Rfam assigns this 94-nucleotide RNA sequence from Ancylomarina longa to the family "TPP riboswitch aptamer (THI element)". Vitamin B(1) in its active form thiamin pyrophosphate (TPP) is an essential coenzyme that is synthesised by coupling of pyrimidine and thiazole moieties in bacteria. Its family is annotated with thiamine pyrophosphate binding in the Gene Ontology. The base pairs follow the family's consensus structure, which is taken from published work.
RNA sequence: AAAUCACAGUGGGGUGCCUUAAUUACAGGCUGAGAUCAUACCCUUAAACCUGAUCCGGGUAAUGCCGGCGUAGGGAAAUUGCGAAAUAACUUUU
Numbered sequence: 001a002a003a004u005c006a007c008a009g010u011g012g013g014g015u016g017c018c019u020u021a022a023u024u025a026c027a028g029g030c031u032g033a034g035a036u037c038a039u040a041c042c043c044u045u046a047a048a049c050c051u052g053a054u055c056c057g058g059g060u061a062a063u064g065c066c067g068g069c070g071u072a073g074g075g076a077a078a079u080u081g082c083g084a085a086a087u088a089a090c091u092u093u094u
Base pairs, nucleotide, nucleotide: 005083007081008080009079011043012042013041015038016030017029018028019027049074050073051072052071055068056067057066058065
Dot-bracket structure: ....(.(((.(((.(((((.......)))).......)..))).....((((..((((......))))..))))....))).)...........